The record is an 81-nucleotide sequence from Ornithorhynchus anatinus, which matches "mir-130 microRNA precursor family" in Rfam.
The base pairs follow the family's consensus structure, which was predicted with PFOLD.
Rfam links the family to the GO terms miRNA-mediated post-transcriptional gene silencing and RISC complex.
For this family Rfam cites "Identification of tissue-specific microRNAs from mouse" (Lagos-Quintana et al., Curr Biol, 2002).

RNA sequence: CCCAAGCCCGUGCUCUUUCCACUAAGCUACGCUGCUUCUCAUGAAGCAGCGUGGCUCAGUGGAAAGAGCACGGGCUUUGGA
Numbered sequence: 001c002c003c004a005a006g007c008c009c010g011u012g013c014u015c016u017u018u019c020c021a022c023u024a025a026g027c028u029a030c031g032c033u034g035c036u037u038c039u040c041a042u043g044a045a046g047c048a049g050c051g052u053g054g055c056u057c058a059g060u061g062g063a064a065a066g067a068g069c070a071c072g073g074g075c076u077u078u079g080g081a
Base pairs, nucleotide, nucleotide: 002080003079005076006075007074008073009072010071012069013068014067015066016065017064018063019062022059023058025056026055027054028053029052030051